[Rfam]
RNA sequence: CUUCAGCGACCCCAGCCACAACGGCCGGUCCCCGUCCCGCUGUUGGCCGUACGUGGCGAGCAGGGCCUGUGCCUC
Numbered sequence: 001c002u003u004c005a006g007c008g009a010c011c012c013c014a015g016c017c018a019c020a021a022c023g024g025c026c027g028g029u030c031c032c033c034g035u036c037c038c039g040c041u042g043u044u045g046g047c048c049g050u051a052c053g054u055g056g057c058g059a060g061c062a063g064g065g066c067c068u069g070u071g072c073c074u075c
Stems, first nucleotide, its partner, number of pairs: 015025003031071001033069001038065001043060002047056003
Rfam assigns this 75-nucleotide RNA sequence from Streptomyces sp. YIM 121038 to the family "ASpks TB sRNA". A reference for the family is Arnvig and Young (2009), "Identification of small RNAs in Mycobacterium tuberculosis", Mol Microbiol. It scores 76 bits against the family's covariance model. Pairs were carried over by alignment from the consensus structure, which is taken from published work. The organism belongs to Streptomyces, within Bacteria.